[Rfam]
RNA sequence: UUCUCAAGCCAGAUCAAUCCAAUCACUUAUCUCAAGUCUUUUCGUGGUUCAUCCCAUCAACACUAUAUUCAUCAUGUCUCCCUGCACAUGCAACUGCUGCUCCGGCGACUGCAGCUCCUGCUCCUGCUCUAGCUGCACUGUGAGUUCCC
Numbered sequence: 001u002u003c004u005c006a007a008g009c010c011a012g013a014u015c016a017a018u019c020c021a022a023u024c025a026c027u028u029a030u031c032u033c034a035a036g037u038c039u040u041u042u043c044g045u046g047g048u049u050c051a052u053c054c055c056a057u058c059a060a061c062a063c064u065a066u067a068u069u070c071a072u073c074a075u076g077u078c079u080c081c082c083u084g085c086a087c088a089u090g091c092a093a094c095u096g097c098u099g100c101u102c103c104g105g106c107g108a109c110u111g112c113a114g115c116u117c118c119u120g121c122u123c124c125u126g127c128u129c130u131a132g133c134u135g136c137a138c139u140g141u142g143a144g145u146u147c148c149c
Stems, first nucleotide, its partner, number of pairs: 083107003090100003111136003120127002
Dot-bracket structure: ..................................................................................(((....(((.....)))....)))...(((......((....))......))).............